[Rfam]
RNA sequence: GAGGCGCAUACCGAAAAGCCUUAUUAGAGUAGGCA
Numbered sequence: 001g002a003g004g005c006g007c008a009u010a011c012c013g014a015a016a017a018g019c020c021u022u023a024u025u026a027g028a029g030u031a032g033g034c035a
Stems, first nucleotide, its partner, number of pairs: 002021004011033002